[Rfam]
RNA: U11 spliceosomal RNA
Organism: Oncorhynchus kisutch
RNA sequence: AAAAAGGGCUUCUGCUAUGUUUAGCACAGGGAAGGUAGGGAUUCACCACUUUUCCUGCGGAAUCUAUAUCAAGAGAUUUCGGAAGCAUAAUUUUUAACUUCUGGGGUUGCGAAUGAACGUGAAUCUUUGCGCCCCA
Numbered sequence: 001a002a003a004a005a006g007g008g009c010u011u012c013u014g015c016u017a018u019g020u021u022u023a024g025c026a027c028a029g030g031g032a033a034g035g036u037a038g039g040g041a042u043u044c045a046c047c048a049c050u051u052u053u054c055c056u057g058c059g060g061a062a063u064c065u066a067u068a069u070c071a072a073g074a075g076a077u078u079u080c081g082g083a084a085g086c087a088u089a090a091u092u093u094u095u096a097a098c099u100u101c102u103g104g105g106g107u108u109g110c111g112a113a114u115g116a117a118c119g120u121g122a123a124u125c126u127u128u129g130c131g132c133c134c135c136a
Base pairs, nucleotide, nucleotide: 008086009085010084011083012082013026014025015024016023017022027057028056029055030054031053032052033051034050035049036048038046058081059080060079061078062077063076064075104134105133106132107131109130110129111128112127113126115125116124